[Rfam]
RNA: c-di-GMP-I riboswitch aptamer
RNA sequence: CUAUGAUAAAGGCAAACCAUACGAAAGUAUGGGACGCAAAGUACAGAAUCUAAGGUAUAAAUCGAAGAGAUUUAUAUGAUGAUCGUCUGGCUGCCGUA
Numbered sequence: 001c002u003a004u005g006a007u008a009a010a011g012g013c014a015a016a017c018c019a020u021a022c023g024a025a026a027g028u029a030u031g032g033g034a035c036g037c038a039a040a041g042u043a044c045a046g047a048a049u050c051u052a053a054g055g056u057a058u059a060a061a062u063c064g065a066a067g068a069g070a071u072u073u074a075u076a077u078g079a080u081g082a083u084c085g086u087c088u089g090g091c092u093g094c095c096g097u098a
Stems, first nucleotide, its partner, number of pairs: 012037002017032006040092003045088003048083003055077009